[Rfam]
RNA: Na+ riboswitch aptamer (DUF1646)
Organism: Bifidobacterium psychraerophilum
RNA sequence: GGUUGGGCUUUCAUAAGCUUCAAGGAAAUCAUUCUCCGAGGGCGCGGAGAA
Numbered sequence: 001g002g003u004u005g006g007g008c009u010u011u012c013a014u015a016a017g018c019u020u021c022a023a024g025g026a027a028a029u030c031a032u033u034c035u036c037c038g039a040g041g042g043c044g045c046g047g048a049g050a051a
Stems, first nucleotide, its partner, number of pairs: 003023003006019005032051007